[Rfam]
RNA: Selenocysteine transfer RNA
Organism: Paracoccus aurantiacus
RNA sequence: GGAAGAGCAACAUCCCCGGUGGGGUGCCCGGACUUCAAAUCCGGCGAGAGGCGCGCGGCGUCUUUGGUGGGUUCGACUCCCUCCUCUUCC
Numbered sequence: 001g002g003a004a005g006a007g008c009a010a011c012a013u014c015c016c017c018g019g020u021g022g023g024g025u026g027c028c029c030g031g032a033c034u035u036c037a038a039a040u041c042c043g044g045c046g047a048g049a050g051g052c053g054c055g056c057g058g059c060g061u062c063u064u065u066g067g068u069g070g071g072u073u074c075g076a077c078u079c080c081c082u083c084c085u086c087u088u089c090c
Base pairs, nucleotide, nucleotide: 001090002089003088004087005086006085007084011026012025013024014023015022016021028044029043030042031041032040047065048064049063050062051061069081070080071079